The family of this 139-nucleotide sequence from Paenibacillus monticola is "c-di-AMP riboswitch aptamer (ydaO/yuaA leader)". Lineage of the source: Bacteria > Bacillota > Bacilli > Caryophanales > Paenibacillus. From the family's description: This family represents a conserved RNA structure found upstream of the ydaO and yuaA genes in Bacillus subtilis and related genes in other bacteria.
RNA sequence: GUGCAUAACACGCCAAAUUCCCUGCACCGGGGAGUGGGGGAACCAUAUUUUGGGUGAAUUGAUCUCCUAACAGAGGGAUCAUAGGUGAACCUUCUACCGAACCCUUAAGCUAACCUCGCAGGCAUUGGAAGGAGUACAU
Numbered sequence: 001g002u003g004c005a006u007a008a009c010a011c012g013c014c015a016a017a018u019u020c021c022c023u024g025c026a027c028c029g030g031g032g033a034g035u036g037g038g039g040g041a042a043c044c045a046u047a048u049u050u051u052g053g054g055u056g057a058a059u060u061g062a063u064c065u066c067c068u069a070a071c072a073g074a075g076g077g078a079u080c081a082u083a084g085g086u087g088a089a090c091c092u093u094c095u096a097c098c099g100a101a102c103c104c105u106u107a108a109g110c111u112a113a114c115c116u117c118g119c120a121g122g123c124a125u126u127g128g129a130a131g132g133a134g135u136a137c138a139u
Stems, first nucleotide, its partner, number of pairs: 012123003018033005034119006045050001052104003060081007084098004